[Rfam]
RNA sequence: GCCGGUCCUCGGUAGUGGCUUCCGGUCGGGAUGACCGGGCGCUUCGAUCGAAGACCGGC
Numbered sequence: 001g002c003c004g005g006u007c008c009u010c011g012g013u014a015g016u017g018g019c020u021u022c023c024g025g026u027c028g029g030g031a032u033g034a035c036c037g038g039g040c041g042c043u044u045c046g047a048u049c050g051a052a053g054a055c056c057g058g059c
Stems, first nucleotide, its partner, number of pairs: 001059007009051005017043003021039008
The record is a 59-nucleotide RNA from Nonomuraea dietziae, which matches "Actino-pnp RNA" in Rfam. The family's RNA type in Rfam is cis-regulatory element.